[Rfam]
RNA: Mammalian CPEB3 ribozyme
RNA sequence: GCUGCAGGUCUGAGGCUGUAGCAGAAGUGGUCAUGGUGUAGCCUGUCAGAGUCCAAUGAAUUUGCAAAUUCUGCU
Numbered sequence: 001g002c003u004g005c006a007g008g009u010c011u012g013a014g015g016c017u018g019u020a021g022c023a024g025a026a027g028u029g030g031u032c033a034u035g036g037u038g039u040a041g042c043c044u045g046u047c048a049g050a051g052u053c054c055a056a057u058g059a060a061u062u063u064g065c066a067a068a069u070u071c072u073g074c075u
Base pairs, nucleotide, nucleotide: 014043015042016041017040020075021074022073023072024071025070026069027039028038029037047064048063049062050061052059053058